[Rfam]
RNA sequence: CUCAGCGGUUGGCGUACUUCUCCCUGGCGGGCGGAGUAAUCACGCAUAGCUGUCAUCAGACGCUGCAAGAUUUCCGAAGCCCGCAUAAUGCGGGCUUUUUUGU
Numbered sequence: 001c002u003c004a005g006c007g008g009u010u011g012g013c014g015u016a017c018u019u020c021u022c023c024c025u026g027g028c029g030g031g032c033g034g035a036g037u038a039a040u041c042a043c044g045c046a047u048a049g050c051u052g053u054c055a056u057c058a059g060a061c062g063c064u065g066c067a068a069g070a071u072u073u074c075c076g077a078a079g080c081c082c083g084c085a086u087a088a089u090g091c092g093g094g095c096u097u098u099u100u101u102g103u
Base pairs, nucleotide, nucleotide: 010042011041012040014037015036017034018033020031021030022029078096079095080094081093082092083091084090

A member of the RNA family "Tryptophan operon leader" from Rahnella aquatilis, 103 nucleotides long. Rfam classes the family as a cis-regulatory leader. On this family, see Kolter and Yanofsky, Annu Rev Genet 1982: "Attenuation in amino acid biosynthetic operons".